[Rfam]
RNA sequence: GUCGAGCUUGGUAACGUGGGCUUGUGAUCCAAGUGGAGACAACAAGAUGUUGGAAUCUUGGGCCGAUCUCAUUAGGCCGGGUUUGGGGUGGCUAUUUACUGGCCUGCCCAUUCCAAGUCGGGAGUUGAGGGUUAGGGCUCGAGCGAAGGCUUGUGGUUCGGACACUCUUAGAGCGGAGGAGACUGCGUGAGGCUGGUUUCACAGAGCAGCGUCCACCUCCCGCUUUCGACGGUGGAAGGAUUACGGGCCGGUGCCUUCUGAGCCCACUAUGACCUAAUAAGCUGGUUUCAACUGGGACCAACAAUCUUU
Numbered sequence: 001g002u003c004g005a006g007c008u009u010g011g012u013a014a015c016g017u018g019g020g021c022u023u024g025u026g027a028u029c030c031a032a033g034u035g036g037a038g039a040c041a042a043c044a045a046g047a048u049g050u051u052g053g054a055a056u057c058u059u060g061g062g063c064c065g066a067u068c069u070c071a072u073u074a075g076g077c078c079g080g081g082u083u084u085g086g087g088g089u090g091g092c093u094a095u096u097u098a099c100u101g102g103c104c105u106g107c108c109c110a111u112u113c114c115a116a117g118u119c120g121g122g123a124g125u126u127g128a129g130g131g132u133u134a135g136g137g138c139u140c141g142a143g144c145g146a147a148g149g150c151u152u153g154u155g156g157u158u159c160g161g162a163c164a165c166u167c168u169u170a171g172a173g174c175g176g177a178g179g180a181g182a183c184u185g186c187g188u189g190a191g192g193c194u195g196g197u198u199u200c201a202c203a204g205a206g207c208a209g210c211g212u213c214c215a216c217c218u219c220c221c222g223c224u225u226u227c228g229a230c231g232g233u234g235g236a237a238g239g240a241u242u243a244c245g246g247g248c249c250g251g252u253g254c255c256u257u258c259u260g261a262g263c264c265c266a267c268u269a270u271g272a273c274c275u276a277a278u279a280a281g282c283u284g285g286u287u288u289c290a291a292c293u294g295g296g297a298c299c300a301a302c303a304a305u306c307u308u309u
Stems, first nucleotide, its partner, number of pairs: 001040003004023007028037003044308004048303006056295002058291003062286004067281001069280001071278006078271001079265009090255002093253002099251008108239002111237005117230009127167003131163003135159005140153005168173001175220005185212004193204003
Rfam assigns this 309-nucleotide RNA sequence from Brassica oleracea to the family "Plant signal recognition particle RNA".
The base pairs follow the family's consensus structure, which is taken from published work.
It scores 232 bits against the family's covariance model.